The family of this 62-nucleotide RNA from Corynebacterium doosanense is "L31-Corynebacteriaceae ribosomal protein leader". Its Rfam clan is "Ribosomal Protein L31 Leader clan". The family's consensus secondary structure is taken from published work. The organism belongs to Corynebacterium doosanense, within Bacteria.
RNA sequence: ACUCAGGCACGAUCGCCGCACAUACCGCCGGCGAACCGACCUGAAGUAUCAAUCCUGAAGGG
Number, nucleotide and partner (000 for none) at each position: 001a047002c046003u045004c043005a042006g041007g040008c000009a000010c000011g000012a000013u034014c033015g032016c031017c030018g029019c000020a000021c000022a000023u000024a000025c000026c000027g000028c000029c018030g017031g016032c015033g014034a013035a000036c000037c000038g000039a000040c007041c006042u005043g004044a000045a003046g002047u001048a000049u000050c000051a000052a000053u000054c000055c000056u000057g000058a000059a000060g000061g000062g000